Description: The record is a 102-nucleotide RNA sequence from Priestia filamentosa, which matches "SAM riboswitch aptamer (S box leader)" in Rfam. The base pairs follow the family's consensus structure, which is taken from published work. NCBI's taxonomy places the organism under Bacteria, Bacillota, Bacilli, Caryophanales, Priestia. It scores 77 bits against the family's covariance model.
RNA sequence: AACUUAUCAAGAGUGGAUAAGAGAACUGGCUCAAUGAUUCCACAGCAACCUGCGUAUGCAAGGUGCUACUACCAGCAAAGCAAACGCUUUGAGUGAUAAAUG
Numbered sequence: 001a002a003c004u005u006a007u008c009a010a011g012a013g014u015g016g017a018u019a020a021g022a023g024a025a026c027u028g029g030c031u032c033a034a035u036g037a038u039u040c041c042a043c044a045g046c047a048a049c050c051u052g053c054g055u056a057u058g059c060a061a062g063g064u065g066c067u068a069c070u071a072c073c074a075g076c077a078a079a080g081c082a083a084a085c086g087c088u089u090u091g092a093g094u095g096a097u098a099a100a101u102g
Base pairs, nucleotide, nucleotide: 002101004099005098006097007096008095013043014042015041016040017039021032022031023030026075027074028073029072044067045066046065047064049063050062051060052059053058071094076091077090078089079088080087081086